[Rfam]
This 62-nucleotide RNA sequence from Mycobacterium cookii belongs to the Rfam family "Fluoride riboswitch aptamer (crcB RNA motif)". The match comes from Rfam's covariance-model search (44 bits). The base pairs follow the family's consensus structure, which is taken from published work.
Nucleotides: 062
Stems, first nucleotide, its partner, number of pairs: 010025004016053006033043003
Number, partner (000 for none) and nucleotide at each position: 001000u002000c003000g004000c005000g006000u007000u008000c009000a010025g011024g012023c013022g014000a015000u016053g017052a018051a019050g020049c021048u022013c023012g024011c025010c026000u027000u028000u029000u030000a031000c032000c033043g034042c035041c036000g037000u038000a039000c040000c041035g042034g043033c044000u045000g046000a047000u048021g049020g050019c051018u052017u053016c054000u055000g056000c057000c058000c059000g060000a061000g062000g